[Rfam]
RNA sequence: UUUCCCAUUAAUUUGCUGCUCUAGUCUGUCAGUGAUAGGAGCGGUUAUACGCAUGGGAUAAAACAAUAUUGGGCCAUGUACAUGGAGAUGAAAUGUGUUUUGUCUCUCGUAUGUGGUCUAGACAUUG
Numbered sequence: 001u002u003u004c005c006c007a008u009u010a011a012u013u014u015g016c017u018g019c020u021c022u023a024g025u026c027u028g029u030c031a032g033u034g035a036u037a038g039g040a041g042c043g044g045u046u047a048u049a050c051g052c053a054u055g056g057g058a059u060a061a062a063a064c065a066a067u068a069u070u071g072g073g074c075c076a077u078g079u080a081c082a083u084g085g086a087g088a089u090g091a092a093a094u095g096u097g098u099u100u101u102g103u104c105u106c107u108c109g110u111a112u113g114u115g116g117u118c119u120a121g122a123c124a125u126u127g
Base pairs, nucleotide, nucleotide: 003058004057005056006055007054008053015045016044017043018042019041020040021039022037023036025035026034069121070120071119072118073117074116075115076114078112079111080110085106086105087104088103089102090101091100092099093098

Small nucleolar RNA SNORA20: a 127-nucleotide RNA sequence. Its family is annotated with RNA processing and nucleolus in the Gene Ontology. It is annotated as an H/ACA-box small nucleolar RNA. Rfam describes the family as follows. ACA20 is a member of the H/ACA class of snoRNA that guide the sites of modification of uridines to pseudouridines. Rfam's curators put it in the seed alignment. The family has 17 seed sequences and 437 matches in Rfam 15.1. The family's consensus secondary structure was predicted with ILM. Its Rfam clan is "SNORA20 clan".